RNA: BsrG
Organism: Pueribacillus theae
RNA sequence: GACAAUAGCAUAAAGGUUUCUCAAGGGUGGUCGGCAACAUCCCCAGAACGAAAGGGGGUGGUGCUGAUGACAGUGUUUGAAACAUUGAUGCUCAUCUUUGUUUUCGCUGGGCUUAUUAUAUCAAUCCUGUCAUUUAACCAUAAAAAAUAAUCCACCCUUGAGUAAAUGACGGCUCAGGUGGAUUAUUCCCAGGGCCGAUCCCCUUAAAGGGAACCUGCUAUUGUAUAGCCACUUCGAUGCUGGAACAUCGGAG
Numbered sequence: 001g002a003c004a005a006u007a008g009c010a011u012a013a014a015g016g017u018u019u020c021u022c023a024a025g026g027g028u029g030g031u032c033g034g035c036a037a038c039a040u041c042c043c044c045a046g047a048a049c050g051a052a053a054g055g056g057g058g059u060g061g062u063g064c065u066g067a068u069g070a071c072a073g074u075g076u077u078u079g080a081a082a083c084a085u086u087g088a089u090g091c092u093c094a095u096c097u098u099u100g101u102u103u104u105c106g107c108u109g110g111g112c113u114u115a116u117u118a119u120a121u122c123a124a125u126c127c128u129g130u131c132a133u134u135u136a137a138c139c140a141u142a143a144a145a146a147a148u149a150a151u152c153c154a155c156c157c158u159u160g161a162g163u164a165a166a167u168g169a170c171g172g173c174u175c176a177g178g179u180g181g182a183u184u185a186u187u188c189c190c191a192g193g194g195c196c197g198a199u200c201c202c203c204u205u206a207a208a209g210g211g212a213a214c215c216u217g218c219u220a221u222u223g224u225a226u227a228g229c230c231a232c233u234u235c236g237a238u239g240c241u242g243g244a245a246c247a248u249c250g251g252a253g
Base pairs, nucleotide, nucleotide: 002224003223004222005221007219008218009217015196016195017194018193020162021161022160023159024158025157026156027155029152030151031150038060039059041058042057043056044055069131070130071129072128073127075125082097084095109122199212200211201210202209232253233252234251235250236249237248238247239246